[Rfam]
Rfam assigns this 52-nucleotide sequence from a Hyphomonadaceae bacterium to the family "serC leader".
Pairs were carried over by alignment from the consensus structure.
The literature on the family includes a 2005 paper in Genome Biol by Corbino et al., "Evidence for a second class of S-adenosylmethionine riboswitches and other regulatory RNA motifs in alpha-proteobacteria".
Rfam describes the family as follows. This family is a putative regulatory RNA structure that is found upstream of the serC-serA operon in some alpha-proteobacteria. The final stem of the structure overlaps the ribosome binding site of the serC reading frame.
It is annotated as a cis-regulatory leader.
The organism belongs to Hyphomonadaceae, within Bacteria.
RNA sequence: GAGUGGGCCAUCCGCUCCCAACGGCGGACGUCCAUCUGUGAGGAUGGGAGAC
Numbered sequence: 001g002a003g004u005g006g007g008c009c010a011u012c013c014g015c016u017c018c019c020a021a022c023g024g025c026g027g028a029c030g031u032c033c034a035u036c037u038g039u040g041a042g043g044a045u046g047g048g049a050g051a052c
Stems, first nucleotide, its partner, number of pairs: 011028006032047006